[Rfam]
RNA sequence: UGAUAUUUAUUUGAUAUAGGACACUCAUAUCGAUAAAAAGAUUUGAACCGUUU
Numbered sequence: 001u002g003a004u005a006u007u008u009a010u011u012u013g014a015u016a017u018a019g020g021a022c023a024c025u026c027a028u029a030u031c032g033a034u035a036a037a038a039a040g041a042u043u044u045g046a047a048c049c050g051u052u053u
Stems, first nucleotide, its partner, number of pairs: 011033007

This 53-nucleotide sequence from Rhynchospora breviuscula belongs to the Rfam family "Plastid-atpF group II-D1 intron". Its family is annotated with Group II intron splicing in the Gene Ontology. The source organism's lineage runs through Eukaryota, Spermatophyta, Poales, Cyperoideae and Rhynchospora. On this family, see Richter et al., Plant Commun 2023: "Retrograde signaling in plants: A critical review focusing on the GUN pathway and beyond". Rfam 15.1 lists 1,372 matches to the family in 227 species. About the family: Plastid atpF is a non-coding RNA (ncRNA) recognised in plastids. It has been reported in the intron group II-D1 region of ATP synthase (atpF) genes.